Record summary
glmS glucosamine-6-phosphate activated ribozyme aptamer: a 151-nucleotide RNA from Dehalobacter sp. 12DCB1. Gene Ontology terms of the family: regulation of gene expression and catalytic activity. Rfam classes the family as a riboswitch.
RNA sequence: CACAGAAAUGUAGCGCCAGAACCCAUUCAGGGUUGACGAGGAAGAGGUUAAUCGAAGUUUUCGGCGGGUGCCUCUCGGUGGCUUGUCAUCGUUAGAUUUGCUGUAAAUCCGGAAAGCAAUUUCCGGGACAAAAAGCGGAUCAAACAGGAAG
Numbered sequence: 001c002a003c004a005g006a007a008a009u010g011u012a013g014c015g016c017c018a019g020a021a022c023c024c025a026u027u028c029a030g031g032g033u034u035g036a037c038g039a040g041g042a043a044g045a046g047g048u049u050a051a052u053c054g055a056a057g058u059u060u061u062c063g064g065c066g067g068g069u070g071c072c073u074c075u076c077g078g079u080g081g082c083u084u085g086u087c088a089u090c091g092u093u094a095g096a097u098u099u100g101c102u103g104u105a106a107a108u109c110c111g112g113a114a115a116g117c118a119a120u121u122u123c124c125g126g127g128a129c130a131a132a133a134a135g136c137g138g139a140u141c142a143a144a145c146a147g148g149a150a151g
Base pairs, nucleotide, nucleotide: 020034021033022032023031024030043075044074045073046072047071052064053063054062055061076091077090078089079088080087095141096140097139098138099137100136101135109126110125111124112123113122114121115120
Dot-bracket structure: ...................(((((.....)))))........(((((....((((.....))))......)))))(((((......)))))...(((((((.......(((((((....)))))))........)))))))..........